drz-agam-1 ribozyme: a 79-nucleotide RNA from Hermetia illucens. NCBI's taxonomy places the organism under Eukaryota, Altocrustacea, Pterygota, Brachycera, Hermetia. The family has 7 seed sequences and 10,507 matches in Rfam 15.1. A search with the family's covariance model found it, with a score of 39 bits. On this family, see Webb et al., Science 2009: "Widespread occurrence of self-cleaving ribozymes".
[Rfam]
RNA sequence: UACUACCAAACCCUAUCUUUACCUCCACGUGGUGACCGCUGAGAGCUCUUUCGUAACGAAAAGCUGCAGACGGAGAAGG
Numbered sequence: 001u002a003c004u005a006c007c008a009a010a011c012c013c014u015a016u017c018u019u020u021a022c023c024u025c026c027a028c029g030u031g032g033u034g035a036c037c038g039c040u041g042a043g044a045g046c047u048c049u050u051u052c053g054u055a056a057c058g059a060a061a062a063g064c065u066g067c068a069g070a071c072g073g074a075g076a077a078g079g
Base pairs, nucleotide, nucleotide: 012079013078014077016075018073019072021033022032023031044065045064046063047062049061050060051059052058053057